[Rfam]
RNA sequence: CCCAGCGGUAGUCAGCUACCCGUCGCUGCUCUGUGCCUGUGGUAGUGUUAUGCUGCUGGGAGAGAAACGCGCUGCCGAGUUGCUCCUGGCACCGCCAGUGCUGUUCUGGCAUUGGGUGAUGGCAGGGUUUGGCAGCGCUCUGCAUGCUUGAGAGUGGAGUAACUCCUCGGUGGGGUUAAUCCUAGAUGGGAUGCAGACAAU
Numbered sequence: 001c002c003c004a005g006c007g008g009u010a011g012u013c014a015g016c017u018a019c020c021c022g023u024c025g026c027u028g029c030u031c032u033g034u035g036c037c038u039g040u041g042g043u044a045g046u047g048u049u050a051u052g053c054u055g056c057u058g059g060g061a062g063a064g065a066a067a068c069g070c071g072c073u074g075c076c077g078a079g080u081u082g083c084u085c086c087u088g089g090c091a092c093c094g095c096c097a098g099u100g101c102u103g104u105u106c107u108g109g110c111a112u113u114g115g116g117u118g119a120u121g122g123c124a125g126g127g128u129u130u131g132g133c134a135g136c137g138c139u140c141u142g143c144a145u146g147c148u149u150g151a152g153a154g155u156g157g158a159g160u161a162a163c164u165c166c167u168c169g170g171u172g173g174g175g176u177u178a179a180u181c182c183u184a185g186a187u188g189g190g191a192u193g194c195a196g197a198c199a200a201u
Stems, first nucleotide, its partner, number of pairs: 001060009011051002015046006021039002025036002069138009082128004087121002090118003095114001097112001099111004140196006147189001156182003160178007

The family of this 201-nucleotide RNA sequence from Burhinus bistriatus is "Small nucleolar RNA SNORA74". The family is grouped with related families in Rfam's "SNORA74 clan". Rfam classes the family as an H/ACA-box small nucleolar RNA. Pairs were carried over by alignment from the consensus structure, which was predicted with PFOLD. U19 belongs to the H/ACA class of snoRNAs. snoRNAs bind a number of proteins (including dyskerin, Gar1p and Nop10p in the case of the H/ACA class) to form snoRNP complexes. This class are thought to guide the sites of modification of uridines to pseudouridines by forming direct base pairing interactions with substrate RNAs. Targets may include ribosomal and spliceosomal RNAs but the exact functions of many snoRNAs, including U19, are not confirmed. Co-precipitation of U19 snoRNA with RNase MRP RNA suggests that U19 may be involved in pre-rRNA processing. A reference for the family is Bortolin and Kiss (1998), "Human U19 intron-encoded snoRNA is processed from a long primary transcript that possesses little potential for protein coding", RNA.